This 140-nucleotide RNA from Actinomadura verrucosospora belongs to the Rfam family "c-di-AMP riboswitch aptamer (ydaO/yuaA leader)". Taxonomically the source falls in Actinomadura (Bacteria, Bacillati, Actinomycetota, Actinomycetes).
RNA sequence: UCCGGCCGGACGCCGAAUCUCCCGCGAGGGGGAGCCGGGGACCCAGGUUCGUUGGGGUGAAUCCGCUGGUCGCCAGCGGUAGGGCCGUCUCCUGGCCCGAACCCGUCAGCUAACCCGGCAGGCGGAUAAGGAGAGGUGGA
Numbered sequence: 001u002c003c004g005g006c007c008g009g010a011c012g013c014c015g016a017a018u019c020u021c022c023c024g025c026g027a028g029g030g031g032g033a034g035c036c037g038g039g040g041a042c043c044c045a046g047g048u049u050c051g052u053u054g055g056g057g058u059g060a061a062u063c064c065g066c067u068g069g070u071c072g073c074c075a076g077c078g079g080u081a082g083g084g085c086c087g088u089c090u091c092c093u094g095g096c097c098c099g100a101a102c103c104c105g106u107c108a109g110c111u112a113a114c115c116c117g118g119c120a121g122g123c124g125g126a127u128a129a130g131g132a133g134a135g136g137u138g139g140a
Stems, first nucleotide, its partner, number of pairs: 011124004018033006034119006044054002055104003063079004082098004